A member of the RNA family "RpsF leader" from Candidatus Hoaglandella endobia, 87 nucleotides long. Its family is annotated with protein binding and negative regulation of translation in the Gene Ontology. It is annotated as a cis-regulatory leader. The pairing is the family consensus, mapped onto this sequence. A search with the family's covariance model found it, with a score of 54 bits. From the family's description: Conserved and widely distributed to many bacterial species RNA structure. It precedes operon containing rpsF, which encodes ribosomal protein S6. The motif also precedes operon containing rpsR, which encodes ribosomal protein S18. The RNA was shown to interact with S6:S18 protein dimer in vitro.
[Rfam]
Nucleotides: 087
Stems, first nucleotide, its partner, number of pairs: 017078007024059006
Number, partner (000 for none) and nucleotide at each position: 001000a002000c003000u004000u005000a006000u007000u008000a009000a010000g011000u012000u013000u014000c015000a016000c017078g018077u019076u020075c021074c022073u023072u024059g025058c026057u027056u028055c029054c030000c031000u032000g033000c034000c035000c036000a037000a038000a039000g040000u041000u042000g043000u044000c045000c046000u047000c048000u049000g050000g051000a052000c053000a054029g055028g056027a057026g058025g059024c060000u061000g062000a063000a064000u065000a066000a067000u068000c069000c070000g071000u072023a073022a074021g075020g076019a077018g078017c079000a080000g081000u082000u083000c084000u085000g086000u087000g